[Rfam]
RNA sequence: UAGGUAAGAGAUAAAAACACAGUCUGGCUGAUAGUACAGACCUAUUGAAAAAUAGAAGUAACCUGACAUCCUGGGGUUGCCCACUCUCUUGUAAUAAACA
Numbered sequence: 001u002a003g004g005u006a007a008g009a010g011a012u013a014a015a016a017a018c019a020c021a022g023u024c025u026g027g028c029u030g031a032u033a034g035u036a037c038a039g040a041c042c043u044a045u046u047g048a049a050a051a052a053u054a055g056a057a058g059u060a061a062c063c064u065g066a067c068a069u070c071c072u073g074g075g076g077u078u079g080c081c082c083a084c085u086c087u088c089u090u091g092u093a094a095u096a097a098a099c100a
Stems, first nucleotide, its partner, number of pairs: 004092008022041005042055005065077001067076001069074001
RNA: azaaromatic riboswitch aptamer (yjdF RNA)
Organism: Terrisporobacter othiniensis